[Rfam]
RNA sequence: GGAGGCGGCGACGCCCCCCCCGACUUGAGACUGGCCUCACGCCAGUCUGCCGUCUCCGCACCCCUUUUCUCGAUGAUGCACACCUGGGCGGGUCGAAAGACCCGCCC
Numbered sequence: 001g002g003a004g005g006c007g008g009c010g011a012c013g014c015c016c017c018c019c020c021c022g023a024c025u026u027g028a029g030a031c032u033g034g035c036c037u038c039a040c041g042c043c044a045g046u047c048u049g050c051c052g053u054c055u056c057c058g059c060a061c062c063c064c065u066u067u068u069c070u071c072g073a074u075g076a077u078g079c080a081c082a083c084c085u086g087g088g089c090g091g092g093u094c095g096a097a098a099g100a101c102c103c104g105c106c107c
Stems, first nucleotide, its partner, number of pairs: 001057010012022002029047007086107009
Background: The family of this 107-nucleotide sequence from Phenylobacterium kunshanense is "Cauldobacter sRNA CC3552". For this family Rfam cites "Small non-coding RNAs in Caulobacter crescentus" (Landt et al., Mol Microbiol, 2008). Rfam classes the family as a small RNA.